Small nucleolar RNA SNORD77: a 68-nucleotide sequence from Oryctolagus cuniculus. The match comes from Rfam's covariance-model search (45 bits). Rfam classes the family as a C/D-box small nucleolar RNA. Rfam links the family to the GO terms RNA processing and nucleolus. Pairs were carried over by alignment from the consensus structure, which was predicted with RNAalifold.
[Rfam]
RNA sequence: AUACAAUGAUGGUGGUGUGGGUCAUCGGAUCCAACUCUGAAGAGAUGGAUCAUUGGUCUGAUGUAUCC
Numbered sequence: 001a002u003a004c005a006a007u008g009a010u011g012g013u014g015g016u017g018u019g020g021g022u023c024a025u026c027g028g029a030u031c032c033a034a035c036u037c038u039g040a041a042g043a044g045a046u047g048g049a050u051c052a053u054u055g056g057u058c059u060g061a062u063g064u065a066u067c068c
Base pairs, nucleotide, nucleotide: 001066002065003064004063006038008036010034013028015026044054045053046052047051
The family has 21 seed sequences and 396 matches in Rfam 15.1.
About the family: U77 belongs to the C/D family of snoRNAs. It is predicted to guide 2'O-ribose methylation of large 28S rRNA subunit at position A1521. The C/D snoRNAs U44, U47, U74, U75, U76, U78, U79, U80 and U81 share the same host gene as U77 (non-coding).
The literature on the family includes a 2004 paper in Curr Biol by Tycowski et al., "Guide RNAs with 5' caps and novel box C/D snoRNA-like domains for modification of snRNAs in metazoa".